[Rfam]
RNA: Manganese Mn2+ riboswitch aptamer (yybP-ykoY)
RNA sequence: UCCCAGGGCAUGUUUGGGGAGUAGUCGCCCUCGGCCACGCCCAAGUGGCCAGGGGCGCACGUCAACAUUCUCGGGGAUGGCCCCGUGGCGUGCGCAUCUCUCGAUCGGCCGAAUGUGCCGGGCGACGGAUUGACGAGAC
Numbered sequence: 001u002c003c004c005a006g007g008g009c010a011u012g013u014u015u016g017g018g019g020a021g022u023a024g025u026c027g028c029c030c031u032c033g034g035c036c037a038c039g040c041c042c043a044a045g046u047g048g049c050c051a052g053g054g055g056c057g058c059a060c061g062u063c064a065a066c067a068u069u070c071u072c073g074g075g076g077a078u079g080g081c082c083c084c085g086u087g088g089c090g091u092g093c094g095c096a097u098c099u100c101u102c103g104a105u106c107g108g109c110c111g112a113a114u115g116u117g118c119c120g121g122g123c124g125a126c127g128g129a130u131u132g133a134c135g136a137g138a139c
Stems, first nucleotide, its partner, number of pairs: 029053003055095010072085005